[Rfam]
RNA sequence: UUGCAUUCUUAAACCUUCUUGGUAGCUUUACUCUAAAUGCUUCCAAGAUAUGAGCGAAUGUAACUUAUCUAGGUUGCUCAGUCAAAAUAGUUUCUGAAACUAAAAUUUACAUGUAAAUUAUUAA
Numbered sequence: 001u002u003g004c005a006u007u008c009u010u011a012a013a014c015c016u017u018c019u020u021g022g023u024a025g026c027u028u029u030a031c032u033c034u035a036a037a038u039g040c041u042u043c044c045a046a047g048a049u050a051u052g053a054g055c056g057a058a059u060g061u062a063a064c065u066u067a068u069c070u071a072g073g074u075u076g077c078u079c080a081g082u083c084a085a086a087a088u089a090g091u092u093u094c095u096g097a098a099a100c101u102a103a104a105a106u107u108u109a110c111a112u113g114u115a116a117a118u119u120a121u122u123a124a
Stems, first nucleotide, its partner, number of pairs: 003061004008054004017048006024041003065124003071119002074116004088102006
Shown here is a 124-nucleotide RNA from Balaenoptera physalus, a member of the family "Small nucleolar RNA SNORA14". Taxonomically the source falls in Balaenoptera (Eukaryota, Craniata, Vertebrata, Gnathostomata). Gene Ontology terms of the family: nucleolus and RNA processing. It is annotated as an H/ACA-box small nucleolar RNA.